[Rfam]
RNA sequence: UAACCUUCUUCGAAAGGAGAAACUGAACAGCCAGAAGUCAGCAGAUACCAUAGUACCUAAGUAGAGGACGCUCGAACAGGGAAGGGU
Numbered sequence: 001u002a003a004c005c006u007u008c009u010u011c012g013a014a015a016g017g018a019g020a021a022a023c024u025g026a027a028c029a030g031c032c033a034g035a036a037g038u039c040a041g042c043a044g045a046u047a048c049c050a051u052a053g054u055a056c057c058u059a060a061g062u063a064g065a066g067g068a069c070g071c072u073c074g075a076a077c078a079g080g081g082a083a084g085g086g087u
Stems, first nucleotide, its partner, number of pairs: 001025002006021006037046003047087003056080003
This 87-nucleotide RNA sequence from Paenactinomyces guangxiensis belongs to the Rfam family "Group II catalytic intron D1-D4-1". It scores 60 bits against the family's covariance model. Rfam links the family to the GO term Group II intron splicing.